[Rfam]
RNA: MIR473 microRNA precursor family
RNA sequence: AUUGCUCACUCUCCCUCAAGGGCUUCCGAUCGACUUGACUCUUCAAGAGCGCCUGAGCUGAGGCGCUUGGGGAGAGUGGAUAA
Numbered sequence: 001a002u003u004g005c006u007c008a009c010u011c012u013c014c015c016u017c018a019a020g021g022g023c024u025u026c027c028g029a030u031c032g033a034c035u036u037g038a039c040u041c042u043u044c045a046a047g048a049g050c051g052c053c054u055g056a057g058c059u060g061a062g063g064c065g066c067u068u069g070g071g072g073a074g075a076g077u078g079g080a081u082a083a
Base pairs, nucleotide, nucleotide: 006079007078008077009076010075011074012073013072014071015070017069018068019067020066022064023063024062025061026060